[Rfam]
RNA sequence: UUAAAACUGGGAGUGGGUUGUUCCCACUCACUCCACCCAUGCGGUGUUGUACUCUGUUAUUACGGUAACUUUGUACGCCAGUUUUUCCC
Numbered sequence: 001u002u003a004a005a006a007c008u009g010g011g012a013g014u015g016g017g018u019u020g021u022u023c024c025c026a027c028u029c030a031c032u033c034c035a036c037c038c039a040u041g042c043g044g045u046g047u048u049g050u051a052c053u054c055u056g057u058u059a060u061u062a063c064g065g066u067a068a069c070u071u072u073g074u075a076c077g078c079c080a081g082u083u084u085u086u087c088c089c
Stems, first nucleotide, its partner, number of pairs: 003085006010034009035045003046078002049076004056069004
The family of this 89-nucleotide sequence from Enterovirus alpharhino is "Enterovirus 5' cloverleaf cis-acting replication element". Pairs were carried over by alignment from the consensus structure, which is taken from published work. For this family Rfam cites "5' cloverleaf in poliovirus RNA is a cis-acting replication element required for negative-strand synthesis" (Barton et al., EMBO J, 2001). The sequence is in the family's curated seed alignment. The family's RNA type in Rfam is cis-regulatory element. Rfam describes the family as follows. This family represents a cis-regulatory element found at the 5' end of Enterovirus genomes.